[Rfam]
Shown here is an 82-nucleotide RNA from Planctomycetales bacterium 10988, a member of the family "Group II catalytic intron D1-D4-1". NCBI's taxonomy places the organism under Bacteria, Pseudomonadati, Planctomycetota, Planctomycetia, Planctomycetales.

Nucleotides: 082
Stems, first nucleotide, its partner, number of pairs: 001026002006021006041048002050082003059075006
Number, partner (000 for none) and nucleotide at each position: 001026c002025u003000a004000g005000g006021g007020a008019a009018g010017c011016g012000g013000c014000a015000a016011c017010g018009c019008u020007u021006c022000g023000a024000g025002a026001g027000g028000a029000g030000g031000g032000g033000g034000g035000g036000a037000g038000a039000a040000g041048u042047c043000a044000g045000c046000a047042g048041a049000g050082g051081u052080c053000a054000u055000c056000g057000u058000a059075g060074u061073u062072g063071a064070u065000c066000g067000c068000c069000g070064a071063u072062c073061a074060g075059c076000g077000a078000a079000g080052g081051a082050c